[Rfam]
RNA sequence: UGCAGCCAUGUCAAAUUCUGUGUUUUCUCUACAAUGGACUGUACUGGUCAAAAUGGCUGCCACAGUGAGUAGUUCAUGAGCACCACAUCCCUCUGGCAUGGUUGCUGGGGAUAAAUAUGUACUACAGGCAAUU
Numbered sequence: 001u002g003c004a005g006c007c008a009u010g011u012c013a014a015a016u017u018c019u020g021u022g023u024u025u026u027c028u029c030u031a032c033a034a035u036g037g038a039c040u041g042u043a044c045u046g047g048u049c050a051a052a053a054u055g056g057c058u059g060c061c062a063c064a065g066u067g068a069g070u071a072g073u074u075c076a077u078g079a080g081c082a083c084c085a086c087a088u089c090c091c092u093c094u095g096g097c098a099u100g101g102u103u104g105c106u107g108g109g110g111a112u113a114a115a116u117a118u119g120u121a122c123u124a125c126a127g128g129c130a131a132u133u
Base pairs, nucleotide, nucleotide: 002060003059004058005057018046020044021043022042023041026038027037028036069125070124071123072122073121074119081110083108084107085106